A member of the RNA family "Small nucleolar RNA SNORD14" from Mytilus coruscus, 97 nucleotides long.
Rfam links the family to the GO terms RNA processing and nucleolus.
U14 small nucleolar RNA (U14 snoRNA) is required for early cleavages of eukaryotic precursor rRNAs. In yeasts, this molecule possess a stem-loop region (known as the Y-domain) which is essential for function. A similar structure, but with a different consensus sequence, is found in plants, but is absent in vertebrates.
The literature on the family includes a 1996 paper in Nucleic Acids Res by Samarsky et al., "An essential domain in Saccharomyces cerevisiae U14 snoRNA is absent in vertebrates, but conserved in other yeasts".
Rfam classes the family as a C/D-box small nucleolar RNA.
A search with the family's covariance model found it, with a score of 69 bits.
The base pairs follow the family's consensus structure, which was predicted with PFOLD.
[Rfam]
RNA sequence: UUGCAAUGAUGAAAACUUUUCCAUUCAUUCGCGGUUUCCACCAGAGAGUUCUUGGACUCGAAGAUGGCCGUUAGACCUUCCUUGGAAGUCUGAGUAA
Numbered sequence: 001u002u003g004c005a006a007u008g009a010u011g012a013a014a015a016c017u018u019u020u021c022c023a024u025u026c027a028u029u030c031g032c033g034g035u036u037u038c039c040a041c042c043a044g045a046g047a048g049u050u051c052u053u054g055g056a057c058u059c060g061a062a063g064a065u066g067g068c069c070g071u072u073a074g075a076c077c078u079u080c081c082u083u084g085g086a087a088g089u090c091u092g093a094g095u096a097a
Stems, first nucleotide, its partner, number of pairs: 001097004046059005